Shown here is a 196-nucleotide RNA sequence from Virgibacillus salarius, a member of the family "Group II catalytic intron D1-D4-5". For this family Rfam cites "The ins and outs of group II introns" (Bonen and Vogel, Trends Genet, 2001). Taxonomically the source falls in Virgibacillus (Bacteria, Bacillati, Bacillota, Bacillaceae). A search with the family's covariance model found it, with a score of 105 bits. The pairing is the family consensus, mapped onto this sequence.
[Rfam]
RNA sequence: AAUGAAGGAUAUUAUCAGGAGUCGAAUGAUGAGGUAACGUUCAGAAAGGCUUCCCCUGCGUCGAAUAGCAUGCUGUUUUAGUAAGGAAAAGCGUGUUAUAAGCUCGGCUAAUAGGCGUGAGAAUUUACCGUAACAAUUCGGCUGACGAAACCCUACCCGAUGGGGUGGUGUAAAUCAUGGUGCUUGGGUUGAACAA
Numbered sequence: 001a002a003u004g005a006a007g008g009a010u011a012u013u014a015u016c017a018g019g020a021g022u023c024g025a026a027u028g029a030u031g032a033g034g035u036a037a038c039g040u041u042c043a044g045a046a047a048g049g050c051u052u053c054c055c056c057u058g059c060g061u062c063g064a065a066u067a068g069c070a071u072g073c074u075g076u077u078u079u080a081g082u083a084a085g086g087a088a089a090a091g092c093g094u095g096u097u098a099u100a101a102g103c104u105c106g107g108c109u110a111a112u113a114g115g116c117g118u119g120a121g122a123a124u125u126u127a128c129c130g131u132a133a134c135a136a137u138u139c140g141g142c143u144g145a146c147g148a149a150a151c152c153c154u155a156c157c158c159g160a161u162g163g164g165g166u167g168g169u170g171u172a173a174a175u176c177a178u179g180g181u182g183c184u185u186g187g188g189u190u191g192a193a194c195a196a
Stems, first nucleotide, its partner, number of pairs: 018053006033041002054188003061107004065099010076088003114184005123175006129147003135143001152168002155166004
Dot-bracket structure: .................((((((.........((.....))......))))))(((....((((((((((((((.(((.......))).))))))))))....))))......(((((....(((((((((...(.......).)))....((.((((....)))))).))))))....))))).)))........